[Rfam]
This 70-nucleotide RNA sequence belongs to the Rfam family "DUF805 RNA". The base pairs follow the family's consensus structure, which is taken from published work. The family's RNA type in Rfam is cis-regulatory element.
RNA sequence: AAAAAAGGGAGACCAGUACCCUAUUCCAAAACGGGGCGAAUUCCGAAAAGCCAUACGAGUAAGAAAGAUU
Numbered sequence: 001a002a003a004a005a006a007g008g009g010a011g012a013c014c015a016g017u018a019c020c021c022u023a024u025u026c027c028a029a030a031a032c033g034g035g036g037c038g039a040a041u042u043c044c045g046a047a048a049a050g051c052c053a054u055a056c057g058a059g060u061a062a063g064a065a066a067g068a069u070u
Stems, first nucleotide, its partner, number of pairs: 006022001008021002035052003042064002